[Rfam]
Nucleotides: 066
Stems, first nucleotide, its partner, number of pairs: 002065005009058004014049003019045007026032002
Number, partner (000 for none) and nucleotide at each position: 001000u002065a003064u004063g005062g006061a007000g008000g009058a010057a011056g012055c013000u014049g015048a016047c017000u018000u019045g020044g021043c022042u023041a024040g025039u026032g027031u028000g029000g030000c031027a032026c033000a034000g035000a036000g037000a038000a039025g040024c041023u042022a043021g044020u045019u046000u047016g048015u049014u050000u051000c052000c053000a054000u055012g056011u057010u058009u059000a060000a061006u062005c063004c064003a065002u066000u